[Rfam]
Nucleotides: 058
Base pairs, nucleotide, nucleotide: 002054003053004052006050008048009047010046012044013043014042015041016040018038019037020036022035023034
Number, partner (000 for none) and nucleotide at each position: 001000c002054g003053c004052a005000u006050c007000c008048c009047c010046u011000a012044g013043g014042g015041c016040a017000u018038u019037g020036g021000u022035g023034u024000a025000a026000a027000g028000c029000u030000g031000g032000a033000g034023a035022c036020c037019c038018a039000c040016u041015g042014c043013c044012c045000c046010a047009g048008g049000u050006g051000c052004u053003g054002c055000u056000g057000g058000g